[Rfam]
RNA sequence: AAUAAUUGAGGGUAGAAAGGUUCCUACCGCACCUGAAAAGGUAUCUGAGAUGCUGGAUACACCGACCAGCCAAUUAUU
Dot-bracket structure: ((((((((..(((((...[[[..))))).(((((....))))....)....(((((....]]]..)))))))))))))
Numbered sequence: 001a002a003u004a005a006u007u008g009a010g011g012g013u014a015g016a017a018a019g020g021u022u023c024c025u026a027c028c029g030c031a032c033c034u035g036a037a038a039a040g041g042u043a044u045c046u047g048a049g050a051u052g053c054u055g056g057a058u059a060c061a062c063c064g065a066c067c068a069g070c071c072a073a074u075u076a077u078u
Stems, first nucleotide, its partner, number of pairs: 001078008011028005019063003030047001031042004052070005
skipping-rope RNA: a 78-nucleotide sequence. Rfam's curators put it in the seed alignment.